[Rfam]
A member of the RNA family "Ribosomal protein L10 leader" from Symplocastrum torsivum, 170 nucleotides long. The family's consensus secondary structure was predicted with CMfinder. About the family: This family is a putative r-protein leader autoregulatory structure found in B. subtilis and other low-GC Gram-positive bacteria. It is located in the 5' untranslated regions of mRNAs encoding ribosomal proteins L10 and L12 (rplJ-rplL). A Rho-independent transcription terminator structure that is probably involved in regulation is included at the 3' end. NCBI's taxonomy places the organism under Bacteria, Bacillati, Cyanobacteriota, Oscillatoriophycideae, Symplocastrum torsivum. It scores 52 bits against the family's covariance model.
RNA sequence: AAACUGAAUCGGCUUGUGCCAUAGACAGCAGGAGCGAAUCGCUUAAUAACCUGCCGAGGUCAAUGCCCUGAGUAUCCGCCGUGCCACCGGCAUUUGUAAAUGUGAGUGGCAGGGUCUAAAAGAUACAAAGUGCAACCCCGGCAUAGUGUCCGGGGUUUUGUUAUUGGUUG
Numbered sequence: 001a002a003a004c005u006g007a008a009u010c011g012g013c014u015u016g017u018g019c020c021a022u023a024g025a026c027a028g029c030a031g032g033a034g035c036g037a038a039u040c041g042c043u044u045a046a047u048a049a050c051c052u053g054c055c056g057a058g059g060u061c062a063a064u065g066c067c068c069u070g071a072g073u074a075u076c077c078g079c080c081g082u083g084c085c086a087c088c089g090g091c092a093u094u095u096g097u098a099a100a101u102g103u104g105a106g107u108g109g110c111a112g113g114g115u116c117u118a119a120a121a122g123a124u125a126c127a128a129a130g131u132g133c134a135a136c137c138c139c140g141g142c143a144u145a146g147u148g149u150c151c152g153g154g155g156u157u158u159u160g161u162u163a164u165u166g167g168u169u170g
Stems, first nucleotide, its partner, number of pairs: 028054005034042003136155006